A member of the RNA family "BsrG" from Sporosarcina limicola, 251 nucleotides long. bsrE, bsrG and bsrH pair through intermolecular interactions with antisense sRNAs. On this family, see Saito et al., Gene 2008: "Novel small RNA-encoding genes in the intergenic regions of Bacillus subtilis". Rfam links the family to the GO terms toxin activity and autolysis. The source organism's lineage runs through Bacteria, Bacillati, Caryophanales, Caryophanaceae and Sporosarcina.

RNA sequence: AACAAUAGAAUAGGUGGCUCAAGGGUGGUCGGCCCAUUCCCGAAAGAAAGGGGGUGGUGCUGAUGUCAGUGUUCCAAUCAUUGAUGUUCGCAGUAGCAUUCGCAACAUUAAUCGUAUUGAUCCUGUCGUUUAACCAAAAACAAAAAUAACCCAUCCUUGAGUUAGCAGCUCAGAUGGGUUACUCCUAAUUGUCAGCCGCCCCCUUGAAGGGACCUGCUAUUGCACCGACCGCCCGAUUUGGUAAAUCGGCG
Numbered sequence: 001a002a003c004a005a006u007a008g009a010a011u012a013g014g015u016g017g018c019u020c021a022a023g024g025g026u027g028g029u030c031g032g033c034c035c036a037u038u039c040c041c042g043a044a045a046g047a048a049a050g051g052g053g054g055u056g057g058u059g060c061u062g063a064u065g066u067c068a069g070u071g072u073u074c075c076a077a078u079c080a081u082u083g084a085u086g087u088u089c090g091c092a093g094u095a096g097c098a099u100u101c102g103c104a105a106c107a108u109u110a111a112u113c114g115u116a117u118u119g120a121u122c123c124u125g126u127c128g129u130u131u132a133a134c135c136a137a138a139a140a141c142a143a144a145a146a147u148a149a150c151c152c153a154u155c156c157u158u159g160a161g162u163u164a165g166c167a168g169c170u171c172a173g174a175u176g177g178g179u180u181a182c183u184c185c186u187a188a189u190u191g192u193c194a195g196c197c198g199c200c201c202c203c204u205u206g207a208a209g210g211g212a213c214c215u216g217c218u219a220u221u222g223c224a225c226c227g228a229c230c231g232c233c234c235g236a237u238u239u240g241g242u243a244a245a246u247c248g249g250c251g
Base pairs, nucleotide, nucleotide: 001221002220004218006216008214011198013196015194016193018161019160020159021158022157023156024155025154027151028150029149034057035056036055038053039052040051041050065127067125068124069123071121078092101119102118172186173185200211201210202209230251231250232249234248235247236246237245238244239243